[Rfam]
RNA sequence: GUUGACCUUACAGCAAUCUUAACAAUUUUAUCACAUUAUAAAAAAAAACCUCAGUCAACUG
Numbered sequence: 001g002u003u004g005a006c007c008u009u010a011c012a013g014c015a016a017u018c019u020u021a022a023c024a025a026u027u028u029u030a031u032c033a034c035a036u037u038a039u040a041a042a043a044a045a046a047a048a049c050c051u052c053a054g055u056c057a058a059c060u061g
Stems, first nucleotide, its partner, number of pairs: 001059006

A member of the RNA family "Class I RNA from Dictyostelium" from Dictyostelium discoideum, 61 nucleotides long. NCBI's taxonomy places the organism under Eukaryota, Eumycetozoa, Dictyosteliales, Dictyostelium, Dictyostelium discoideum. From the family's description: Dictyostelium Class I RNA was first reported for Aspegren et al. 2004 in Dictyostelium discoideum. Sucgang et al. 2011 identify putative homologs of Class I RNA in D. discoideum and D. purpureum. Avesson et al. 2011 report that Class I RNA present a down regulation during the development of social amoeba Dictyostelium discoideum, they also found that deletion of one of the Class I RNAs, DdR-21, results in aberrant development. Kjellin et al. 2020 report an extended number of expressed Class I RNA genes in class Dictyostelia, in their analysis they remark that Class I RNA appear to be unique to dictyostelid social amoebas, and they hypothesise that Class I RNAs were involved in evolution of multicellularity in Dictyostelia. Pairs were carried over by alignment from the consensus structure, which is taken from published work.